[Rfam]
RNA sequence: UAAACUUGUAUGGUAUCUGCAACCAGCAGUAUUUUCUUAAUGGUGUUGAAAAAGCAGUGCUACAGUGAGUCAGCGGCUGGCAUAGUUGAUUUUUUUCAUGCAGAUGUACUGGUUAAACUUGGUAUUUCUGUUGAAACAAGU
Numbered sequence: 001u002a003a004a005c006u007u008g009u010a011u012g013g014u015a016u017c018u019g020c021a022a023c024c025a026g027c028a029g030u031a032u033u034u035u036c037u038u039a040a041u042g043g044u045g046u047u048g049a050a051a052a053a054g055c056a057g058u059g060c061u062a063c064a065g066u067g068a069g070u071c072a073g074c075g076g077c078u079g080g081c082a083u084a085g086u087u088g089a090u091u092u093u094u095u096u097c098a099u100g101c102a103g104a105u106g107u108a109c110u111g112g113u114u115a116a117a118c119u120u121g122g123u124a125u126u127u128c129u130g131u132u133g134a135a136a137c138a139a140g141u
Base pairs, nucleotide, nucleotide: 004058005057007056008055016053018051019046020045021044023043024042025041028038029037063130064129065128067126068125070122071121072120073119079110080109082107083106

Rfam assigns this 141-nucleotide RNA from Struthio camelus to the family "Small nucleolar RNA SNORA8". By type it is an H/ACA-box small nucleolar RNA. NCBI's taxonomy places the organism under Eukaryota, Opisthokonta, Gnathostomata, Archelosauria, Struthio camelus. About the family: ACA8 is a member of the H/ACA class of snoRNA that guide the sites of modification of uridines to pseudouridines. Its Rfam clan is "SNORA8 clan".